Shown here is a 237-nucleotide RNA from Didymella heteroderae, a member of the family "Small nucleolar RNA snR191". The family's RNA type in Rfam is H/ACA-box small nucleolar RNA. On this family, see Badis et al., RNA 2003: "A snoRNA that guides the two most conserved pseudouridine modifications within rRNA confers a growth advantage in yeast".
RNA sequence: UCCCCAUUUUAAGUCAAGGACCUAUUCUUUUCCUCGCGAAAUACUGUUCAUGAACUGGUUCUGUUACAAACUGGGAAGAUUGAGAACGACUCGCUUUCCCAACGCCGUCUUGGCUGCGGGUUGACGGCUUCCGUUUUGGUUGCUGUCGCUAGAGUUCAGAGUGAUCUGUUUGAGUUGAAGGCCGACUCCGCCUGGCGGAACCUUGUGUCGGUCUUCUUAGUAACGCUUCACACAUGC
Dot-bracket structure: ..((((..........((((((..((..((((.....))))...........))..)))))).........))))...........((((((.....(((...(((.....)))...)))..(((((...(((...)))...)))))....)))))..).((((..(((.......((((..((((..(((...))).........))))..))))......)))..))))......
Numbered sequence: 001u002c003c004c005c006a007u008u009u010u011a012a013g014u015c016a017a018g019g020a021c022c023u024a025u026u027c028u029u030u031u032c033c034u035c036g037c038g039a040a041a042u043a044c045u046g047u048u049c050a051u052g053a054a055c056u057g058g059u060u061c062u063g064u065u066a067c068a069a070a071c072u073g074g075g076a077a078g079a080u081u082g083a084g085a086a087c088g089a090c091u092c093g094c095u096u097u098c099c100c101a102a103c104g105c106c107g108u109c110u111u112g113g114c115u116g117c118g119g120g121u122u123g124a125c126g127g128c129u130u131c132c133g134u135u136u137u138g139g140u141u142g143c144u145g146u147c148g149c150u151a152g153a154g155u156u157c158a159g160a161g162u163g164a165u166c167u168g169u170u171u172g173a174g175u176u177g178a179a180g181g182c183c184g185a186c187u188c189c190g191c192c193u194g195g196c197g198g199a200a201c202c203u204u205g206u207g208u209c210g211g212u213c214u215u216c217u218u219a220g221u222a223a224c225g226c227u228u229c230a231c232a233c234a235u236g237c
Stems, first nucleotide, its partner, number of pairs: 003075004017062006025054002029041004087159001088156005098120003104114003123147005131139003161231004167225003177216004183210004189197003